[Rfam]
RNA sequence: AAAAGAGUUCUAUAUCGCGCACAUCACUUCGAUGGCUCUAGAAAGUCACAUAGGAG
Dot-bracket structure: ..................((.((((.....))))))....................

The record is a 56-nucleotide RNA sequence from Protea cynaroides, which matches "Plastid-ndhJ 3UTR RNA" in Rfam. Rfam's curators write: Plastid ndhJ is a non-coding RNA (ncRNA) present in plastids. The literature on the family includes a 2023 paper in Plant Commun by Richter et al., "Retrograde signaling in plants: A critical review focusing on the GUN pathway and beyond". It scores 54 bits against the family's covariance model.